Streptomyces RNA 3202: a 93-nucleotide RNA from Streptomyces brasiliensis. Rfam describes the family as follows. Identified by deep sequencing of transcriptome at the end of exponential growth phase. Appears smaller on northern blot than sequencing transcript. It scores 84 bits against the family's covariance model. The organism belongs to Streptomyces, within Bacteria. The base pairs follow the family's consensus structure.
RNA sequence: CCACGUCCCGUCGCAAUCCCCCCCCGGCGCCGGGACCUUCCCAGAGCCGGACUUCGGCGCCUGUCCCCCCGGGCGUCGGAGUCCGGCUUCUUG
Numbered sequence: 001c002c003a004c005g006u007c008c009c010g011u012c013g014c015a016a017u018c019c020c021c022c023c024c025c026g027g028c029g030c031c032g033g034g035a036c037c038u039u040c041c042c043a044g045a046g047c048c049g050g051a052c053u054u055c056g057g058c059g060c061c062u063g064u065c066c067c068c069c070c071g072g073g074c075g076u077c078g079g080a081g082u083c084c085g086g087c088u089u090c091u092u093g
Base pairs, nucleotide, nucleotide: 005036006035007034008033009032010031012029013028014027044089045088046087047086048085049084050083051082052081053080055078056077057076058075059074060073061072062071063070